A member of the RNA family "mir-2774 microRNA precursor family" from Bombyx mori, 67 nucleotides long. Gene Ontology terms of the family: RISC complex and miRNA-mediated post-transcriptional gene silencing. The organism belongs to Bombyx, within Eukaryota. The family's consensus secondary structure was predicted with RNAalifold. The literature on the family includes a 2010 paper in BMC Genomics by Liu et al., "MicroRNAs of Bombyx mori identified by Solexa sequencing".

RNA sequence: AUAACAUUUGGACAGUCGGUCUACCGAGCAAUUACACACGCUUGGUGGAAGAUCUUCUCAUUGUCCG
Numbered sequence: 001a002u003a004a005c006a007u008u009u010g011g012a013c014a015g016u017c018g019g020u021c022u023a024c025c026g027a028g029c030a031a032u033u034a035c036a037c038a039c040g041c042u043u044g045g046u047g048g049a050a051g052a053u054c055u056u057c058u059c060a061u062u063g064u065c066c067g
Stems, first nucleotide, its partner, number of pairs: 004064003010058003015053003020049010